[Rfam]
This 108-nucleotide sequence from Glycine max belongs to the Rfam family "MIR1520 microRNA precursor family". Gene Ontology terms of the family: miRNA-mediated post-transcriptional gene silencing and RISC complex. Clan: MIR1520 microRNA precursor clan. The sequence is in the family's curated seed alignment.
Nucleotides: 108
Stems, first nucleotide, its partner, number of pairs: 010099004015094002019090003023086004028081003
Number, partner (000 for none) and nucleotide at each position: 001000a002000u003000g004000a005000u006000g007000a008000c009000u010099g011098u012097c013096a014000c015094g016093u017000g018000u019090c020089a021088u022000g023086u024085u025084c026083u027000a028081a029080u030079u031000g032000a033000a034000u035000c036000u037000u038000g039000a040000a041000u042000c043000c044000a045000u046000g047000g048000a049000a050000g051000a052000u053000a054000a055000a056000a057000u058000a059000c060000a061000u062000u063000a064000u065000u066000g067000u068000u069000a070000u071000c072000a073000u074000u075000g076000a077000u078000c079030a080029a081028u082000c083026a084025g085024a086023a087000c088021a089020u090019g091000a092000c093016a094015c095000g096013u097012g098011a099010c100000a101000a102000u103000c104000a105000u106000c107000a108000u